[Rfam]
RNA sequence: ACCCGAAUGAACCUCAGUGGUCUGGGGUGCAGGCUUCAAACCUGUAGAUGUCUGGCAACAGAGUGGUUCAAUUCUGCCUUUCAGGC
Number, nucleotide and partner (000 for none) at each position: 001a000002c085003c084004c000005g082006a081007a080008u000009g078010a000011a000012c027013c026014u025015c024016a023017g022018u000019g000020g000021u000022c017023u016024g015025g014026g013027g012028u046029g045030c044031a043032g042033g041034c000035u000036u000037c000038a000039a000040a000041c033042c032043u031044g030045u029046a028047g000048a000049u060050g059051u058052c000053u000054g000055g000056c000057a000058a051059c050060a049061g000062a000063g077064u076065g075066g074067u000068u000069c000070a000071a000072u000073u000074c066075u065076g064077c063078c009079u000080u007081u006082c005083a000084g003085g002086c000
The family of this 86-nucleotide RNA sequence from Loxodonta africana is "Selenocysteine transfer RNA". Lineage of the source: Eukaryota > Craniata > Tetrapoda > Afrotheria > Loxodonta.